About this RNA
This 331-nucleotide sequence from Azonexus hydrophilus belongs to the Rfam family "Betaproteobacteria transfer-messenger RNA". Rfam describes the family as follows. Bacterial tmRNA, also known as 10Sa RNA or SsrA, is named for its dual tRNA and mRNA-like properties. Its role is to liberate the mRNA from a stalled ribosome. By type it is a non-coding RNA gene.
RNA sequence: UUGUGCGGAUGGCUUGAAAAAGCAUCCCCCCGCCCCCAUAAUCCAGAGCAUGGUUGUAAUUCCGGCAAUCUGGAGGCGUUCUGGACAGGGGUUCGAUUCCCCUCACCUCCACCCAAGGGCAUUGGUUGCAGUGCGUUUGGAUGGGGGUGUACUGGUUUCGACAGGGCGGGCAAAGGUGCGCAGGCAACUCGUCAGGCGAUCGACGUUAAUGAAGCAAAUCCAUAAUUGCCAAUGAUGAGCAAUUCGCUAUUGCCGCCUAAAAACGGUUAGCCGGGGCUGCUAGAGCCUUGUUACCAAAGAUAGCCGGCGGGGACUUCGGUCCCCGUCGUCA
Numbered sequence: 001u002u003g004u005g006c007g008g009a010u011g012g013c014u015u016g017a018a019a020a021a022g023c024a025u026c027c028c029c030c031c032g033c034c035c036c037c038a039u040a041a042u043c044c045a046g047a048g049c050a051u052g053g054u055u056g057u058a059a060u061u062c063c064g065g066c067a068a069u070c071u072g073g074a075g076g077c078g079u080u081c082u083g084g085a086c087a088g089g090g091g092u093u094c095g096a097u098u099c100c101c102c103u104c105a106c107c108u109c110c111a112c113c114c115a116a117g118g119g120c121a122u123u124g125g126u127u128g129c130a131g132u133g134c135g136u137u138u139g140g141a142u143g144g145g146g147g148u149g150u151a152c153u154g155g156u157u158u159c160g161a162c163a164g165g166g167c168g169g170g171c172a173a174a175g176g177u178g179c180g181c182a183g184g185c186a187a188c189u190c191g192u193c194a195g196g197c198g199a200u201c202g203a204c205g206u207u208a209a210u211g212a213a214g215c216a217a218a219u220c221c222a223u224a225a226u227u228g229c230c231a232a233u234g235a236u237g238a239g240c241a242a243u244u245c246g247c248u249a250u251u252g253c254c255g256c257c258u259a260a261a262a263a264c265g266g267u268u269a270g271c272c273g274g275g276g277c278u279g280c281u282a283g284a285g286c287c288u289u290g291u292u293a294c295c296a297a298a299g300a301u302a303g304c305c306g307g308c309g310g311g312g313a314c315u316u317c318g319g320u321c322c323c324c325g326u327c328g329u330c331a
Base pairs, nucleotide, nucleotide: 052189053188054187055186056185062184063183065181066180068177069176070175071174077168078167079166080165081164082163083162087103088102089101090100091099104149105148106147107146108145109144110143190205191204192203193202274288275287276286277285279304280303281302282301307326308325309324310323311322312321313320314319
Overview
Pairs were carried over by alignment from the consensus structure, which is taken from published work. On this family, see Laslett et al., Nucleic Acids Res 2002: "BRUCE: a program for the detection of transfer-messenger RNA genes in nucleotide sequences".